Notes
A member of the RNA family "Clostridiales-1 RNA" from Oribacterium sp. oral taxon 078, 168 nucleotides long. The family's consensus secondary structure is taken from published work. Lineage of the source: Bacteria > Bacillota > Lachnospiraceae > Oribacterium > Oribacterium sp. oral taxon 078. The family has 194 seed sequences and 1,172 matches in Rfam 15.1. A search with the family's covariance model found it, with a score of 109 bits. It is annotated as a small RNA.
[Rfam]
RNA sequence: CAACACCAGCGCCAAAAGUCCCUCCUCCGCGCCGUGCUGGCACGAGCGCGGAGGAGGGACUUUAUGGCGCGCCCCUUUAUGAGCAUGGAACGGGCCGAAGGCCCGUGAGAAUGCGAAUAAAGUACAGCAGGGCGAAAGCGGCGAAGCCGCAAAGACCUGCGGGUGUCG
Numbered sequence: 001c002a003a004c005a006c007c008a009g010c011g012c013c014a015a016a017a018g019u020c021c022c023u024c025c026u027c028c029g030c031g032c033c034g035u036g037c038u039g040g041c042a043c044g045a046g047c048g049c050g051g052a053g054g055a056g057g058g059a060c061u062u063u064a065u066g067g068c069g070c071g072c073c074c075c076u077u078u079a080u081g082a083g084c085a086u087g088g089a090a091c092g093g094g095c096c097g098a099a100g101g102c103c104c105g106u107g108a109g110a111a112u113g114c115g116a117a118u119a120a121a122g123u124a125c126a127g128c129a130g131g132g133c134g135a136a137a138g139c140g141g142c143g144a145a146g147c148c149g150c151a152a153a154g155a156c157c158u159g160c161g162g163g164u165g166u167c168g
Stems, first nucleotide, its partner, number of pairs: 001168001003166005010069004016062016033044004075122006083114004090106007127160005133154001138150004